[Rfam]
RNA sequence: CCCUUCUGCAAUAACAGAAGUCUGCUAUAAUUGUGUGAUUCAGAUUUGAUCUGUUUCAUGCAAUAAUGCUAGCAGACUAUUACGUGGAAGGAUAUCAUUAAGCACUGUACUGAAAAUGAGAUGUUGUCGAACCUCUUUCUUAAUGUUCAUUGGCCUCUGUCUCAAGGUGCAGUGCCACACCU
Numbered sequence: 001c002c003c004u005u006c007u008g009c010a011a012u013a014a015c016a017g018a019a020g021u022c023u024g025c026u027a028u029a030a031u032u033g034u035g036u037g038a039u040u041c042a043g044a045u046u047u048g049a050u051c052u053g054u055u056u057c058a059u060g061c062a063a064u065a066a067u068g069c070u071a072g073c074a075g076a077c078u079a080u081u082a083c084g085u086g087g088a089a090g091g092a093u094a095u096c097a098u099u100a101a102g103c104a105c106u107g108u109a110c111u112g113a114a115a116a117u118g119a120g121a122u123g124u125u126g127u128c129g130a131a132c133c134u135c136u137u138u139c140u141u142a143a144u145g146u147u148c149a150u151u152g153g154c155c156u157c158u159g160u161c162u163c164a165a166g167g168u169g170c171a172g173u174g175c176c177a178c179a180c181c182u
Base pairs, nucleotide, nucleotide: 020077021076023074024073025072026071027070030067031066032065033064036058037057041053042052043051045049102175103174104173105172106171107170108169109168124153126151129148130147131146
Rfam assigns this 182-nucleotide RNA sequence from Dicentrarchus labrax to the family "Small nucleolar RNA SNORA81". The family has 28 seed sequences and 1,161 matches in Rfam 15.1. The organism belongs to Dicentrarchus, within Eukaryota. Rfam classes the family as an H/ACA-box small nucleolar RNA.